[Rfam]
RNA: abiF RNA
Nucleotides: 035
Stems, first nucleotide, its partner, number of pairs: 001034006008024003
Number, partner (000 for none) and nucleotide at each position: 001034g002033u003032c004031c005030c006029c007000a008024a009023g010022c011000c012000u013000c014000u015000c016000g017000a018000c019000g020000a021000u022010g023009c024008u025000c026000a027000u028000c029006g030005g031004g032003g033002a034001c035000u